[Rfam]
The record is a 90-nucleotide RNA sequence from Neobacillus cucumis, which matches "Glycine riboswitch aptamer" in Rfam. The source organism's lineage runs through Bacteria, Bacillati, Bacillota, Caryophanales and Neobacillus.
RNA sequence: AUGACAGCAAGGGGAGAGACUACAAGAUGUAGCGCCGAAGGAGCAAGCAGACAAUGUGAAUCUCUCAGGCAAAAGAACACUUGCUUGACG
Number, nucleotide and partner (000 for none) at each position: 001a000002u000003g000004a000005c000006a085007g084008c083009a082010a081011g080012g000013g078014g000015a000016g000017a000018g000019a000020c032021u031022a030023c029024a000025a000026g000027a000028u000029g023030u022031a021032g020033c000034g070035c069036c068037g066038a065039a000040g000041g064042a063043g062044c000045a000046a000047g057048c056049a000050g000051a000052c000053a000054a000055u000056g048057u047058g000059a000060a000061u000062c043063u042064c041065u038066c037067a000068g036069g035070c034071a000072a000073a000074a000075g000076a000077a000078c013079a000080c011081u010082u009083g008084c007085u006086u000087g000088a000089c000090g000